mir-306 microRNA precursor family: a 76-nucleotide RNA sequence from Bicyclus anynana. The source organism's lineage runs through Eukaryota, Eumetabola, Amphiesmenoptera, Ditrysia and Bicyclus. The literature on the family includes a 2007 paper in Genome Res by Ruby et al., "Evolution, biogenesis, expression, and target predictions of a substantially expanded set of Drosophila microRNAs".
RNA sequence: CCGCGGCCGCCUCAGGUACUAGGUGACUCUGAGUGGCUCUGUCUCAGAGGCGCCUCGUGCCUCAGCGCGGCCGCGG
Dot-bracket structure: (((((..((.(..((((((..((((.(((((((.........))))))).))))..))))))..)..))..)))))